[Rfam]
RNA sequence: UGGCGUCUGUCAGGAGAGAGCUCCCACGGGGGCCGCCGAAGGCGCAGGGUUUCCACCCGAACGCUCAGGUACCCAGGACUGACAAGCGCCU
Numbered sequence: 001u002g003g004c005g006u007c008u009g010u011c012a013g014g015a016g017a018g019a020g021c022u023c024c025c026a027c028g029g030g031g032g033c034c035g036c037c038g039a040a041g042g043c044g045c046a047g048g049g050u051u052u053c054c055a056c057c058c059g060a061a062c063g064c065u066c067a068g069g070u071a072c073c074c075a076g077g078a079c080u081g082a083c084a085a086g087c088g089c090c091u
Stems, first nucleotide, its partner, number of pairs: 006086001008084006020033004035070003038066002042064003048058002

The family of this 91-nucleotide sequence from Caldimonas caldifontis is "Glycine riboswitch aptamer". Pairs were carried over by alignment from the consensus structure. Its Rfam clan is "Glycine riboswitch clan". A search with the family's covariance model found it, with a score of 53 bits. Rfam describes the family as follows. This family represents the bacterial glycine riboswitch. Its family is annotated with glycine biosynthetic process in the Gene Ontology.